[Rfam]
RNA sequence: CCCGAAAAAGGCAAACCGCUCGAAAGGGCGGGACGCAAAGCCACUGGCCUAAGCUCCGGUUUGACGGGGUAGGGCGGCAGGGUUGCCGAGG
Numbered sequence: 001c002c003c004g005a006a007a008a009a010g011g012c013a014a015a016c017c018g019c020u021c022g023a024a025a026g027g028g029c030g031g032g033a034c035g036c037a038a039a040g041c042c043a044c045u046g047g048c049c050u051a052a053g054c055u056c057c058g059g060u061u062u063g064a065c066g067g068g069g070u071a072g073g074g075c076g077g078c079a080g081g082g083u084u085g086c087c088g089a090g091g
Base pairs, nucleotide, nucleotide: 001091003088004087011036012035016031017030018029019028020027021026034077039084040083041082042081044080045079046078047075048074049073